RNA: Phenylalanine leader peptide
Organism: Pantherophis guttatus
RNA sequence: CACGCAAUCUUUUUUUUACUUUUAAAAGCAUUUUUUUUUACAACCUAUUCGGCCAAAUAGGUUGUAAAAAAAAUGCUUUUAAAAGUAAAAAAAAAGGCUCUGACGAUUGGGCGGCUCAGCUGUGAUCGUCAGAGCCUUUUUUUUU
Numbered sequence: 001c002a003c004g005c006a007a008u009c010u011u012u013u014u015u016u017u018a019c020u021u022u023u024a025a026a027a028g029c030a031u032u033u034u035u036u037u038u039u040a041c042a043a044c045c046u047a048u049u050c051g052g053c054c055a056a057a058u059a060g061g062u063u064g065u066a067a068a069a070a071a072a073a074u075g076c077u078u079u080u081a082a083a084a085g086u087a088a089a090a091a092a093a094a095a096g097g098c099u100c101u102g103a104c105g106a107u108u109g110g111g112c113g114g115c116u117c118a119g120c121u122g123u124g125a126u127c128g129u130c131a132g133a134g135c136c137u138u139u140u141u142u143u144u145u
Base pairs, nucleotide, nucleotide: 015089016088017087018086020084021083022082023081024080025079026078027077028076029075030074031073032072033071035069036068037067038066041051052062053061054060093139094138095137096136097135098134099133100132101131102130103129104128105127106126107125108124109123